[Rfam]
RNA: MIR403 microRNA precursor family
RNA sequence: ACCUAUCUCCAGUUUGUGCGUGGAUCAGACGCCAUCAAAUCCGUCCGUUUUCAUCAGCCCAUCCAAUGGUGUUAGAUUCACGCACAAACUCGUGAUCCGUCU
Numbered sequence: 001a002c003c004u005a006u007c008u009c010c011a012g013u014u015u016g017u018g019c020g021u022g023g024a025u026c027a028g029a030c031g032c033c034a035u036c037a038a039a040u041c042c043g044u045c046c047g048u049u050u051u052c053a054u055c056a057g058c059c060c061a062u063c064c065a066a067u068g069g070u071g072u073u074a075g076a077u078u079c080a081c082g083c084a085c086a087a088a089c090u091c092g093u094g095a096u097c098c099g100u101c102u
Stems, first nucleotide, its partner, number of pairs: 001100002005096003011090016028073003032069002043059001045057001